The family of this 268-nucleotide sequence from Sorghum bicolor is "MIR821 microRNA precursor family".
The sequence is in the family's curated seed alignment.
Rfam 15.1 lists 1,438 matches to the family in 13 species.
RNA sequence: GAUUUCAGAUGAAAAAGUUAUGAACAUAAAAGUUGUAGAACUGAUUAAGAUCUACACCUUUUAUUUUGGUCAUUUGUUCAUCCAAUGAAAUGAUAGUAACAUUGUUCACAAAAUUUAUAUAUCUCACUCUUAUAGUUUAUAAAACCAUAUGAGAGAGAUGUAAAAUUUAUGAACAAUGUUAGUAUCACUCUAUCGGAUGAAAAAAUGACCAAAAUAAUAGUUAUAGAUCUUGAUGACUUCUAUAACUUUGUUGUUGAUAACUUUUUCA
Number, nucleotide and partner (000 for none) at each position: 001g000002a000003u000004u000005u000006c000007a000008g000009a000010u000011g000012a000013a000014a264015a263016a262017g261018u260019u259020a258021u257022g000023a255024a254025c000026a252027u000028a000029a000030a248031a247032g246033u245034u244035g243036u242037a241038g240039a239040a238041c000042u236043g000044a234045u233046u232047a231048a230049g229050a228051u227052c226053u225054a000055c000056a222057c000058c220059u219060u000061u217062u216063a215064u214065u213066u212067u211068g000069g209070u208071c207072a206073u205074u204075u203076g000077u201078u200079c199080a198081u197082c000083c195084a000085a193086u192087g191088a000089a189090a000091u187092g186093a000094u184095a183096g000097u181098a180099a179100c000101a177102u176103u175104g174105u173106u172107c171108a170109c000110a168111a167112a166113a000114u164115u163116u000117a161118u160119a159120u158121a000122u156123c000124u000125c000126a000127c000128u000129c000130u000131u000132a000133u147134a000135g145136u144137u143138u142139a000140u000141a000142a138143a137144a136145c135146c000147a133148u000149a000150u000151g000152a000153g000154a000155g000156a122157g000158a120159u119160g118161u117162a000163a115164a114165a000166u112167u111168u110169a000170u108171g107172a106173a105174c104175a103176a102177u101178g000179u099180u098181a097182g000183u095184a094185u000186c092187a091188c000189u089190c000191u087192a086193u085194c000195g083196g000197a081198u080199g079200a078201a077202a000203a075204a074205a073206u072207g071208a070209c069210c000211a067212a066213a065214a064215u063216a062217a061218u000219a059220g058221u000222u056223a000224u000225a053226g052227a051228u050229c049230u048231u047232g046233a045234u044235g000236a042237c000238u040239u039240c038241u037242a036243u035244a034245a033246c032247u031248u030249u000250g000251u000252u026253g000254u024255u023256g000257a021258u020259a019260a018261c017262u016263u015264u014265u000266u000267c000268a000
NCBI's taxonomy places the organism under Eukaryota, Streptophytina, Magnoliopsida, Poaceae, Sorghum.